[Rfam]
RNA sequence: AGUGUAAAUAAAAACUGUCGUCGUAUAAUAUCGGUAAUAAGGUCCGAUAGUCUCUACCAGGUCACCGUAAAAGACCUGACUACGAAAUUAAAUAAGAGCUUA
Numbered sequence: 001a002g003u004g005u006a007a008a009u010a011a012a013a014a015c016u017g018u019c020g021u022c023g024u025a026u027a028a029u030a031u032c033g034g035u036a037a038u039a040a041g042g043u044c045c046g047a048u049a050g051u052c053u054c055u056a057c058c059a060g061g062u063c064a065c066c067g068u069a070a071a072a073g074a075c076c077u078g079a080c081u082a083c084g085a086a087a088u089u090a091a092a093u094a095a096g097a098g099c100u101u102a
Stems, first nucleotide, its partner, number of pairs: 021085005029049006058078006
Purine riboswitch aptamer: a 102-nucleotide sequence from Lysinibacillus sp. BF-4. The base pairs follow the family's consensus structure, which is taken from published work. The match comes from Rfam's covariance-model search (82 bits).